[Rfam]
RNA sequence: UAUAAUAUAAAUUAUUAUAAUUUGAAGGAAGUCGGAGGCAAAGCACUGGCCUGUAAAAGUUGUCCAGAUAGACUGUGAAGCGUGAAUGAGGUUGCUUAACAAACUAAAGUCCAAUAACUGCACGGAACGCCAGCCGUAGACGGGGGCAGGUAUAAGUGUGAAAGAACGUGUG
Number, nucleotide and partner (000 for none) at each position: 001u019002a018003u017004a016005a015006u014007a000008u000009a000010a000011a000012u000013u000014a006015u005016u004017a003018u002019a001020a000021u000022u000023u000024g000025a000026a000027g000028g000029a000030a000031g000032u000033c170034g169035g000036a000037g000038g000039c164040a000041a000042a000043g159044c158045a157046c156047u155048g000049g151050c150051c149052u148053g147054u000055a000056a000057a000058a000059g000060u000061u000062g000063u145064c144065c143066a000067g141068a000069u000070a000071g000072a137073c136074u000075g000076u133077g000078a000079a000080g130081c129082g128083u127084g112085a000086a110087u109088g000089a000090g105091g104092u103093u102094g000095c000096u000097u000098a000099a000100c000101a000102a093103a092104c091105u090106a000107a000108a000109g087110u086111c000112c084113a000114a000115u000116a000117a000118c000119u000120g000121c000122a000123c000124g000125g000126a000127a083128c082129g081130c080131c000132a000133g076134c000135c000136g073137u072138a000139g000140a000141c067142g000143g065144g064145g063146g000147c053148a052149g051150g050151u049152a000153u000154a000155a047156g046157u045158g044159u043160g000161a000162a000163a000164g039165a000166a000167c000168g000169u034170g033171u000172g000
A member of the RNA family "Group II catalytic intron D1-D4-3" from Lachnospiraceae bacterium 3-1, 172 nucleotides long. Taxonomically the source falls in Lachnospiraceae (Bacteria, Bacillati, Bacillota, Clostridia).